[Rfam]
Rfam assigns this 78-nucleotide sequence from Spermophilus dauricus to the family "Small nucleolar RNA R38". Its family is annotated with nucleolus and RNA processing in the Gene Ontology. The base pairs follow the family's consensus structure, which was predicted with PFOLD. On this family, see Bachellerie et al., Trends Biochem Sci 1995: "Antisense snoRNAs: a family of nucleolar RNAs with long complementarities to rRNA". snoR38 is a C/D box small nucleolar RNA conserved across yeast, human, Arabidopsis and rice. It is encoded in the intron of elongation factor-1 gamma in both pombe and cerevisiae. snoR38 guides the methylation of 2'-O-ribose sites in 28S rRNA. The family's RNA type in Rfam is C/D-box small nucleolar RNA.
RNA sequence: AUAAGCUGAGGUUGAUUAAAGUUAUCCCUGUCGGAAAUGGCAUUUUUUUGUGAAGACUUCUGAUCUUCUGAGGUUCAG
Numbered sequence: 001a002u003a004a005g006c007u008g009a010g011g012u013u014g015a016u017u018a019a020a021g022u023u024a025u026c027c028c029u030g031u032c033g034g035a036a037a038u039g040g041c042a043u044u045u046u047u048u049u050g051u052g053a054a055g056a057c058u059u060c061u062g063a064u065c066u067u068c069u070g071a072g073g074u075u076c077a078g
Base pairs, nucleotide, nucleotide: 002077004075005074006073007072